Rfam assigns this 174-nucleotide RNA sequence from Bacillus yapensis to the family "Group II catalytic intron D1-D4-3".
Group II introns are found in rRNA, tRNA and mRNA of organelles in fungi, plants and protists, and also in mRNA in bacteria.
NCBI's taxonomy places the organism under Bacteria, Bacillati, Bacilli, Caryophanales, Bacillus.
[Rfam]
RNA sequence: UCCGUGGUGACGCGGAAUCUGAAGGAAGCCCUAGGCAAAUCCUCGGUCUGAGGUAUACGAAUCACAUUUGAGGUUCUCAUUUCAGGACGAGUUUGCAAAACAAAACGAAGUCCAAAAUAUCCCCGGAUGAAGUGAGGAUAAAUGUGGCAGAUAUAUGAGGAGAAAGCGAGUGAA
Numbered sequence: 001u002c003c004g005u006g007g008u009g010a011c012g013c014g015g016a017a018u019c020u021g022a023a024g025g026a027a028g029c030c031c032u033a034g035g036c037a038a039a040u041c042c043u044c045g046g047u048c049u050g051a052g053g054u055a056u057a058c059g060a061a062u063c064a065c066a067u068u069u070g071a072g073g074u075u076c077u078c079a080u081u082u083c084a085g086g087a088c089g090a091g092u093u094u095g096c097a098a099a100a101c102a103a104a105a106c107g108a109a110g111u112c113c114a115a116a117a118u119a120u121c122c123c124c125g126g127a128u129g130a131a132g133u134g135a136g137g138a139u140a141a142a143u144g145u146g147g148c149a150g151a152u153a154u155a156u157g158a159g160g161a162g163a164a165a166g167c168g169a170g171u172g173a174a
Stems, first nucleotide, its partner, number of pairs: 001016006030172001032170001035167002040161006046152005062147006073139003077135007085113004091106004